[Rfam]
RNA sequence: AUGUGCCUGGCUCCCUGUAUGCCAUUCACAGAGUCUAUCGUGUAAUUGAUGGCCUCUGUGAAUGGCGUAUGAGGAGUCAAGCAUAC
Numbered sequence: 001a002u003g004u005g006c007c008u009g010g011c012u013c014c015c016u017g018u019a020u021g022c023c024a025u026u027c028a029c030a031g032a033g034u035c036u037a038u039c040g041u042g043u044a045a046u047u048g049a050u051g052g053c054c055u056c057u058g059u060g061a062a063u064g065g066c067g068u069a070u071g072a073g074g075a076g077u078c079a080a081g082c083a084u085a086c
Stems, first nucleotide, its partner, number of pairs: 002085005008079007016071009027060003
RNA: mir-160 microRNA precursor family
Organism: Beta vulgaris